Source information:
Rfam assigns this 273-nucleotide sequence from Trachymyrmex septentrionalis to the family "RNase MRP". Rfam classes the family as a ribozyme. A reference for the family is Piccinelli et al. (2005), "Identification and analysis of ribonuclease P and MRP RNA in a broad range of eukaryotes", Nucleic Acids Res.
[Rfam]
RNA sequence: AAGUUCCCUCGGGAAACACCGCGGAGCCACUAUCGGAGUCUGCAAUGACUCUUUAUCGCUCUGAGGAAAGUCCCUGGACCCGUGGCAGAAAGUGCCGUAGCUUUUGGCUAUCAGCCUCCGUCGUCUUCGCGAAUUUCAGGAGAGGAAGUUUCGGCUGAUCCUUCGCGAUGGGCGUGAGAGUGUUUGUCAAAGUAAAGUAAUGUGUGUUGGAACGUUUCUGCUCUUCUGAAAAGAAACGUUUGAACCGAACAGGGCUUAUCGUACGAGGAAACU
Numbered sequence: 001a002a003g004u005u006c007c008c009u010c011g012g013g014a015a016a017c018a019c020c021g022c023g024g025a026g027c028c029a030c031u032a033u034c035g036g037a038g039u040c041u042g043c044a045a046u047g048a049c050u051c052u053u054u055a056u057c058g059c060u061c062u063g064a065g066g067a068a069a070g071u072c073c074c075u076g077g078a079c080c081c082g083u084g085g086c087a088g089a090a091a092g093u094g095c096c097g098u099a100g101c102u103u104u105u106g107g108c109u110a111u112c113a114g115c116c117u118c119c120g121u122c123g124u125c126u127u128c129g130c131g132a133a134u135u136u137c138a139g140g141a142g143a144g145g146a147a148g149u150u151u152c153g154g155c156u157g158a159u160c161c162u163u164c165g166c167g168a169u170g171g172g173c174g175u176g177a178g179a180g181u182g183u184u185u186g187u188c189a190a191a192g193u194a195a196a197g198u199a200a201u202g203u204g205u206g207u208u209g210g211a212a213c214g215u216u217u218c219u220g221c222u223c224u225u226c227u228g229a230a231a232a233g234a235a236a237c238g239u240u241u242g243a244a245c246c247g248a249a250c251a252g253g254g255c256u257u258a259u260c261g262u263a264c265g266a267g268g269a270a271a272c273u
Base pairs, nucleotide, nucleotide: 002273003272004271005270007268008267009266010265011264014207016205017204018203019202022063023062024061025060026059027058036051037050038049039048040047068257069256070255072254073253074252075251084096085095086094087093098110099109100108101107119174120173121172122171127168128167129166130165138162139161140160141159148155149154210241211240212239213238214237215236216235217234218233219232
Notes:
Rfam describes the family as follows. RNase MRP is an enzymatically active ribonucleoprotein with two distinct roles in eukaryotes. In mitochondria it plays a direct role in the initiation of mitochondrial DNA replication. In the nucleus it is involved in precursor rRNA processing, where it cleaves the internal transcribed spacer 1 between 18S and 5.8S rRNAs. Despite distinct functions, RNase MRP has been shown to be evolutionarily related to RNase P. Like eukaryotic RNase P, RNase MRP is not catalytically active without associated protein subunits.